This 180-nucleotide RNA sequence from Bacillus subtilis belongs to the Rfam family "Lysine riboswitch aptamer". The base pairs follow the family's consensus structure, which is taken from published work.
RNA sequence: CAGUGAGGUAGAGGUUGCGCGGAUGAUGAGUCACACAUGCUAGGCUGACAGGGGCUGUUAAACAUGUGUAAAAGGCAUCAGCGCCGAAGUGUGGAGAAAGCCGAUCCUUCUCUAUGCUGGGACUGUAUCUGAAUAAGUGCAGGACUGCCGCGUGCUUUUUCGCGGAGGGCUAUCCGGAGA
Numbered sequence: 001c002a003g004u005g006a007g008g009u010a011g012a013g014g015u016u017g018c019g020c021g022g023a024u025g026a027u028g029a030g031u032c033a034c035a036c037a038u039g040c041u042a043g044g045c046u047g048a049c050a051g052g053g054g055c056u057g058u059u060a061a062a063c064a065u066g067u068g069u070a071a072a073a074g075g076c077a078u079c080a081g082c083g084c085c086g087a088a089g090u091g092u093g094g095a096g097a098a099a100g101c102c103g104a105u106c107c108u109u110c111u112c113u114a115u116g117c118u119g120g121g122a123c124u125g126u127a128u129c130u131g132a133a134u135a136a137g138u139g140c141a142g143g144a145c146u147g148c149c150g151c152g153u154g155c156u157u158u159u160u161c162g163c164g165g166a167g168g169g170c171u172a173u174c175c176g177g178a179g180a
Stems, first nucleotide, its partner, number of pairs: 007174005017084004022079004033069007088118011119146002123142006148165005154159001